[Rfam]
RNA: Bacterial large subunit ribosomal RNA, nucleotides 2867 to 3135
Organism: Kocuria coralli
RNA sequence: GGAAAUUUGAGAAGGUCUGUCCUUAGUACGAGAGGACCGGGACGGACGAACCUCUGGUGUGUCAGUUGUUCCGCCAGGAGCACCGCUGAUUGGCUACGUUCGGGAGAGAUAACCGCUGAAAGCAUCUAAGCGGGAAGCUUGCUUCGAGAUGAGAUUUCCAUCCAACACUCGUGUUGGUGAAGGUGCCCAGGAGAUGACUGGGUUGAUAGGCCAGACGUGGAAGCAGCGACUAACGAGUUGUGAAGCUGACUGGUACUAAUACACCGAAG
Numbered sequence: 001g002g003a004a005a006u007u008u009g010a011g012a013a014g015g016u017c018u019g020u021c022c023u024u025a026g027u028a029c030g031a032g033a034g035g036a037c038c039g040g041g042a043c044g045g046a047c048g049a050a051c052c053u054c055u056g057g058u059g060u061g062u063c064a065g066u067u068g069u070u071c072c073g074c075c076a077g078g079a080g081c082a083c084c085g086c087u088g089a090u091u092g093g094c095u096a097c098g099u100u101c102g103g104g105a106g107a108g109a110u111a112a113c114c115g116c117u118g119a120a121a122g123c124a125u126c127u128a129a130g131c132g133g134g135a136a137g138c139u140u141g142c143u144u145c146g147a148g149a150u151g152a153g154a155u156u157u158c159c160a161u162c163c164a165a166c167a168c169u170c171g172u173g174u175u176g177g178u179g180a181a182g183g184u185g186c187c188c189a190g191g192a193g194a195u196g197a198c199u200g201g202g203u204u205g206a207u208a209g210g211c212c213a214g215a216c217g218u219g220g221a222a223g224c225a226g227c228g229a230c231u232a233a234c235g236a237g238u239u240g241u242g243a244a245g246c247u248g249a250c251u252g253g254u255a256c257u258a259a260u261a262c263a264c265c266g267a268a269g
Stems, first nucleotide, its partner, number of pairs: 001159008011145004017045007047102005055096003062089005067082006106140003113133005162177005182265004186202005207258003210254005217246001223241005